RNA sequence: UUCUUAUCAAGAGAGACGGAGGGACUGGCCCUGUGAUGUCUCGGCAGCGGACUCAUUCUGAGUGCUGUGCCAAAUCCAGCAAGUAAUAGGCUUGAAAGAUGAGGA
Numbered sequence: 001u002u003c004u005u006a007u008c009a010a011g012a013g014a015g016a017c018g019g020a021g022g023g024a025c026u027g028g029c030c031c032u033g034u035g036a037u038g039u040c041u042c043g044g045c046a047g048c049g050g051a052c053u054c055a056u057u058c059u060g061a062g063u064g065c066u067g068u069g070c071c072a073a074a075u076c077c078a079g080c081a082a083g084u085a086a087u088a089g090g091c092u093u094g095a096a097a098g099a100u101g102a103g104g105a
Base pairs, nucleotide, nucleotide: 001105002104003103004102005101006100007099008098013042014041015040016039017038021031022030023029025079026078027077028076043071044070045069046068048067049066051063052062053061075097080094081093082092083091084090
RNA: SAM riboswitch aptamer (S box leader)